[Rfam]
RNA: L31-Firmicutes ribosomal protein leader
RNA sequence: CUCUGAUUCCACAAAGGAUUCAGGGCAAGGAGGAG
Numbered sequence: 001c002u003c004u005g006a007u008u009c010c011a012c013a014a015a016g017g018a019u020u021c022a023g024g025g026c027a028a029g030g031a032g033g034a035g
Stems, first nucleotide, its partner, number of pairs: 001025005008018003